[Rfam]
Shown here is a 98-nucleotide RNA sequence from Dioscorea zingiberensis, a member of the family "MIR2275 microRNA precursor family". The source organism's lineage runs through Eukaryota, Streptophytina, Embryophyta, Euphyllophyta and Dioscorea.

RNA sequence: GUUCUGAACGUGAGAAUUGGAGGUGAUCAAACCCAAAUGAUCAAUGGACGGAUCCAUUGAUUCGGGUUUGGUUUCCUCCAAUGUCUCACCUUCAAUUG
Numbered sequence: 001g002u003u004c005u006g007a008a009c010g011u012g013a014g015a016a017u018u019g020g021a022g023g024u025g026a027u028c029a030a031a032c033c034c035a036a037a038u039g040a041u042c043a044a045u046g047g048a049c050g051g052a053u054c055c056a057u058u059g060a061u062u063c064g065g066g067u068u069u070g071g072u073u074u075c076c077u078c079c080a081a082u083g084u085c086u087c088a089c090c091u092u093c094a095a096u097u098g
Base pairs, nucleotide, nucleotide: 005094006093007092008091011088012087013086014085016082017081018080019079020078021077023075025073026072027071028070029069030068032066033065